The family of this 108-nucleotide RNA sequence from Betta splendens is "Vault RNA". A reference for the family is Stadler et al. (2009), "Evolution of Vault RNAs", Mol Biol Evol. Rfam 15.1 lists 2,873 matches to the family in 431 species. The match comes from Rfam's covariance-model search (58 bits). Lineage of the source: Eukaryota > Clupeocephala > Percomorphaceae > Anabantaria > Betta.

RNA sequence: GUGGAGGUGUAGCUCAGCGGCUACUUCGCGUCAAUCUGAGAAUUUGUGCUCUAGUCUUCCGGUUGACAAAUCGGAAGGUUCGAACCGCGAGCGCUGUCCUCUGCUUUU
Numbered sequence: 001g002u003g004g005a006g007g008u009g010u011a012g013c014u015c016a017g018c019g020g021c022u023a024c025u026u027c028g029c030g031u032c033a034a035u036c037u038g039a040g041a042a043u044u045u046g047u048g049c050u051c052u053a054g055u056c057u058u059c060c061g062g063u064u065g066a067c068a069a070a071u072c073g074g075a076a077g078g079u080u081c082g083a084a085c086c087g088c089g090a091g092c093g094c095u096g097u098c099c100u101c102u103g104c105u106u107u108u
Stems, first nucleotide, its partner, number of pairs: 002103006012092004017088004025084004